[Rfam]
RNA sequence: GAAGAAUCUAAUACCUUCUUAGAGGCUGUUUUUGCAAACAGCCUCUAAGAUAGUUGUAAUUCCUUUGGAAAUUACUGAUAGUUCCAUGUCUAAAAUAGAUCGAAGAAUCCAUUUUAGACAUGGAACUAUCAGUAAUUUCC
Numbered sequence: 001g002a003a004g005a006a007u008c009u010a011a012u013a014c015c016u017u018c019u020u021a022g023a024g025g026c027u028g029u030u031u032u033u034g035c036a037a038a039c040a041g042c043c044u045c046u047a048a049g050a051u052a053g054u055u056g057u058a059a060u061u062c063c064u065u066u067g068g069a070a071a072u073u074a075c076u077g078a079u080a081g082u083u084c085c086a087u088g089u090c091u092a093a094a095a096u097a098g099a100u101c102g103a104a105g106a107a108u109c110c111a112u113u114u115u116a117g118a119c120a121u122g123g124a125a126c127u128a129u130c131a132g133u134a135a136u137u138u139c140c
Base pairs, nucleotide, nucleotide: 004062005061006060008056010054017050018049019048020047021046022045024043025042026041067140068139069138072135073134074133075132076131077130078129088119089118090117091116092115093114094113095112096111
RNA: Small nucleolar RNA SNORA14